[Rfam]
RNA sequence: GUUCGUCUUCAGGGCGGGGUGAAAUUCCCCACCGGCGGUAAGGCUCCCCGUGGGCCGAGCCCGCGAGCGCUUUUUCCCGCGGUUUGGGGAAAAAGGUCAGCAGAUCCGGUGUAAAACCGGAGCCGACGGUCACAGUCCGGAUGAAAGAAGACGCCG
Numbered sequence: 001g002u003u004c005g006u007c008u009u010c011a012g013g014g015c016g017g018g019g020u021g022a023a024a025u026u027c028c029c030c031a032c033c034g035g036c037g038g039u040a041a042g043g044c045u046c047c048c049c050g051u052g053g054g055c056c057g058a059g060c061c062c063g064c065g066a067g068c069g070c071u072u073u074u075u076c077c078c079g080c081g082g083u084u085u086g087g088g089g090a091a092a093a094a095g096g097u098c099a100g101c102a103g104a105u106c107c108g109g110u111g112u113a114a115a116a117c118c119g120g121a122g123c124c125g126a127c128g129g130u131c132a133c134a135g136u137c138c139g140g141a142u143g144a145a146a147g148a149a150g151a152c153g154c155c156g
Stems, first nucleotide, its partner, number of pairs: 004153007017029003031136002033125002035064004059123002067101002105121005127139003
Notes:
The family of this 156-nucleotide RNA from Azospira inquinata is "FMN riboswitch aptamer (RFN element)". A search with the family's covariance model found it, with a score of 116 bits. Rfam 15.1 lists 6,230 matches to the family in 5,120 species.